[Rfam]
RNA sequence: GGCGAUAAAUUGUGCCGUGUAAUAGAUGCAGCGGACCCGGGGGCAGUACCCGGCGGCUCCACCAUAUUCCCUGAUCGCUCAGGGCAUCUGACGGGGCCGAACCAGGAUCGACGUGUAUUCAAAGACGGUGUUUUCGCUCAGGCUGAGUAACCUGUUCAAGGCUCAAAACCGAUAAGUGCCAACGAUAACGAAGCACUUGCUCUUGCAGCGUAA
Dot-bracket structure: (((((.........((((........(((.(((...(((((.......)))))(((((((................................)))))))............)))))).......)))).....)))))((((........))))...........................................................

A member of the RNA family "permuted transfer-messenger RNA" from Sphingobium fluviale, 213 nucleotides long. On this family, see Zwieb et al., Nucleic Acids Res 2003: "tmRDB (tmRNA database)". The organism belongs to Sphingobium, within Bacteria. From the family's description: Bacterial tmRNA, also known as 10Sa RNA or SsrA, is named for its dual tRNA and mRNA-like properties. Its role is to liberate the mRNA from a stalled ribosome. Pairs were carried over by alignment from the consensus structure, which is taken from published work. Rfam classes the family as a non-coding RNA gene.